[Rfam]
Nucleotides: 110
Stems, first nucleotide, its partner, number of pairs: 001110008013041001015040003021031003025082001027080002042074004047070002049067006078102001083099006
Number, partner (000 for none) and nucleotide at each position: 001110c002109u003108c004107u005106u006105a007104u008103c009000c010000g011000g012000a013041g014000u015040g016039g017038u018000g019000g020000a021031g022030g023029g024000a025082c026000u027080g028079g029023c030022c031021c032000g033000a034000u035000g036000a037000a038017a039016c040015c041013c042074g043073g044072c045071a046000a047070c048069c049067u050066u051065c052064u053063g054062a055000g056000a057000a058000c059000u060000a061000a062054u063053c064052a065051g066050a067049a068000a069048g070047g071045u072044g073043c074042u075000a076000a077000u078102u079028c080027c081000u082025g083099c084098a085097g086096a087095g088094g089000a090000u091000u092000u093000u094088c095087u096086u097085c098084u099083g100000a101000c102078a103008g104007a105006u106005a107004a108003g109002a110001g